[Rfam]
RNA sequence: CGCGCGGACACACCUGUCCGGGCGGCCCUGACACCGGUACCUGACACGGCCGGUGCAG
Numbered sequence: 001c002g003c004g005c006g007g008a009c010a011c012a013c014c015u016g017u018c019c020g021g022g023c024g025g026c027c028c029u030g031a032c033a034c035c036g037g038u039a040c041c042u043g044a045c046a047c048g049g050c051c052g053g054u055g056c057a058g
Base pairs, nucleotide, nucleotide: 001024002023003022005020006019007018008017009016028058029057030056032055033054034053035052036051037050038049
Dot-bracket structure: (((.(((((......))))).)))...(((.(((((((..........))))))))))

L17-Actino-Proteobacteria ribosomal protein leader: a 58-nucleotide RNA sequence from Streptomyces lonarensis.
Lineage of the source: Bacteria > Actinomycetes > Kitasatosporales > Streptomycetaceae > Streptomyces.
The base pairs follow the family's consensus structure, which is taken from published work.
On this family, see Eckert and Weinberg, BMC Microbiol 2020: "Discovery of 20 novel ribosomal leader candidates in bacteria and archaea".